[Rfam]
RNA sequence: AGCAAUGAUGUUUGUAAUUUGCGGCAGAUAACAAGUGAUGUGACAGUUGCCUUCUGUCAUAUGCCUUCUUGUUUAACUGAUGAAGACAUUUUACUGAGCU
Number, nucleotide and partner (000 for none) at each position: 001a100002g099003c098004a000005a000006u000007g000008a000009u000010g000011u000012u000013u000014g000015u000016a000017a000018u000019u000020u000021g000022c082023g081024g000025c079026a000027g000028a000029u000030a000031a072032c071033a070034a069035g068036u000037g000038a000039u000040g064041u063042g058043a057044c056045a055046g054047u000048u000049g000050c000051c000052u000053u000054c046055u045056g044057u043058c042059a000060u000061a000062u000063g041064c040065c000066u000067u000068c035069u034070u033071g032072u031073u000074u000075a000076a000077c000078u000079g025080a000081u023082g022083a000084a000085g000086a000087c000088a000089u000090u000091u000092u000093a000094c000095u000096g000097a000098g003099c002100u001
Shown here is a 100-nucleotide RNA sequence from Dreissena polymorpha, a member of the family "Small nucleolar RNA SNORD16". Pairs were carried over by alignment from the consensus structure, which was predicted with PFOLD. The organism belongs to Dreissena, within Eukaryota. Rfam 15.1 lists 1,321 matches to the family in 655 species. The family is grouped with related families in Rfam's "SNORD16 clan". The match comes from Rfam's covariance-model search (60 bits).